[Rfam]
RNA sequence: UCUGGAGGACCAAGAAGGUGGAAUCUGAUGCAGCAAGACUACUGAUACAAUCCUUCCAGAAAAAAGGAUUAGAGAGAGUAGCCAUUACUGGAGAAUAUCACAGGGUUGCCUGUACUAUACAACAUUG
Numbered sequence: 001u002c003u004g005g006a007g008g009a010c011c012a013a014g015a016a017g018g019u020g021g022a023a024u025c026u027g028a029u030g031c032a033g034c035a036a037g038a039c040u041a042c043u044g045a046u047a048c049a050a051u052c053c054u055u056c057c058a059g060a061a062a063a064a065a066g067g068a069u070u071a072g073a074g075a076g077a078g079u080a081g082c083c084a085u086u087a088c089u090g091g092a093g094a095a096u097a098u099c100a101c102a103g104g105g106u107u108g109c110c111u112g113u114a115c116u117a118u119a120c121a122a123c124a125u126u127g
Stems, first nucleotide, its partner, number of pairs: 002059002004056006017043003021039001024038003066120001068118002077111002079108005085102001089100003
The family of this 127-nucleotide RNA sequence from Trichechus manatus is "Small Cajal body specific RNA 4". Rfam 15.1 lists 634 matches to the family in 510 species. Gene Ontology terms of the family: Cajal body, nucleolus and RNA processing. The family's RNA type in Rfam is small Cajal body RNA. scaRNAs are a specific class of small nuclear RNAs which localise to the Cajal bodies and guide the modification of RNA polymerase II transcribed spliceosomal RNAs U1, U2, U4, U5 and U12. ACA26 belongs to the H/ACA box class of guide RNAs as it has the predicted hairpin-hinge-hairpin-tail structure, conserved H/ACA-box motifs and is found associated with GAR1. The base pairs follow the family's consensus structure, which was predicted with RNAfold. The match comes from Rfam's covariance-model search (107 bits).